[Rfam]
RNA sequence: CCGUGCUAGAUGGGGAGUUAGCGGUGCCCUGUAACCUGCAAUCCGCUAUAGCAGGAUUGAAUUCCUCGCCUAGGCUUUAAUUUGUGGAGUCUGCCCUAAGCAAGUAGUGUUGAGGAUUGGGUCCCACGCAACGGAAGCUCAUGAACCUCGUCAGGUCCGGAAGGAAGCAGCGAUAAGUGAAUCCUUCCGUGUGCCGUGGAUUAACCUGGUCUGAGCUAACUACUUAGGUAACGUUCAUAGAUUACUGUCGAAGCGAGGUGCACGG
Numbered sequence: 001c002c003g004u005g006c007u008a009g010a011u012g013g014g015g016a017g018u019u020a021g022c023g024g025u026g027c028c029c030u031g032u033a034a035c036c037u038g039c040a041a042u043c044c045g046c047u048a049u050a051g052c053a054g055g056a057u058u059g060a061a062u063u064c065c066u067c068g069c070c071u072a073g074g075c076u077u078u079a080a081u082u083u084g085u086g087g088a089g090u091c092u093g094c095c096c097u098a099a100g101c102a103a104g105u106a107g108u109g110u111u112g113a114g115g116a117u118u119g120g121g122u123c124c125c126a127c128g129c130a131a132c133g134g135a136a137g138c139u140c141a142u143g144a145a146c147c148u149c150g151u152c153a154g155g156u157c158c159g160g161a162a163g164g165a166a167g168c169a170g171c172g173a174u175a176a177g178u179g180a181a182u183c184c185u186u187c188c189g190u191g192u193g194c195c196g197u198g199g200a201u202u203a204a205c206c207u208g209g210u211c212u213g214a215g216c217u218a219a220c221u222a223c224u225u226a227g228g229u230a231a232c233g234u235u236c237a238u239a240g241a242u243u244a245c246u247g248u249c250g251a252a253g254c255g256a257g258g259u260g261c262a263c264g265g
Base pairs, nucleotide, nucleotide: 001265002264003263004262005261006260009058010057011056012030013029014028015027017025018024019023035055036054037053038052039051064258065257066256067255068254069253073249074248075247079243080242081241082240083239084238085237086236087235088234092230093229096227097226098225099224100223104220105219106217107216108215114212115211116210117209118208119207120206121205122204124199125198126197127196128195129191130190132189133188134187135186136185137182139180140179141178142177148173149172150171151170156165157164158163
RNA: Bacterial large signal recognition particle RNA
Organism: Clostridium intestinale